[Rfam]
RNA sequence: GCCUCCGAGGAUGAUGAUAUACAUAACUUUCGUUCUUCUGAGAUGUUCCAUGCGGAAACUUUUUUGGAGACCUGAACUGAGGAGGC
Numbered sequence: 001g002c003c004u005c006c007g008a009g010g011a012u013g014a015u016g017a018u019a020u021a022c023a024u025a026a027c028u029u030u031c032g033u034u035c036u037u038c039u040g041a042g043a044u045g046u047u048c049c050a051u052g053c054g055g056a057a058a059c060u061u062u063u064u065u066g067g068a069g070a071c072c073u074g075a076a077c078u079g080a081g082g083a084g085g086c
Base pairs, nucleotide, nucleotide: 003084004083005082006081

Background: This 86-nucleotide sequence from Turnera subulata belongs to the Rfam family "Small nucleolar RNA Z159/U59". The organism belongs to Turnera, within Eukaryota. Its Rfam clan is "SNORD59 clan". The match comes from Rfam's covariance-model search (68 bits).